[Rfam]
RNA sequence: GCUGCUCUGGGAGCUGUCCUCGAUGUCGCUCUGGCAGCCCUCGUCGUUGAGCGAGCCCUGCUUGGCCACGCGGGGCGCCAGCUGCCUCAGCAGCUCCCCCAGC
Numbered sequence: 001g002c003u004g005c006u007c008u009g010g011g012a013g014c015u016g017u018c019c020u021c022g023a024u025g026u027c028g029c030u031c032u033g034g035c036a037g038c039c040c041u042c043g044u045c046g047u048u049g050a051g052c053g054a055g056c057c058c059u060g061c062u063u064g065g066c067c068a069c070g071c072g073g074g075g076c077g078c079c080a081g082c083u084g085c086c087u088c089a090g091c092a093g094c095u096c097c098c099c100c101a102g103c
Base pairs, nucleotide, nucleotide: 001103002102003101004100007093008092009091011087012083013082014081015080018077019075020074021073024070025069026068028066029065030064033062034061035060036059037058040055041054042053043052044051
RNA: mir-2968 microRNA precursor family
Organism: Megalops atlanticus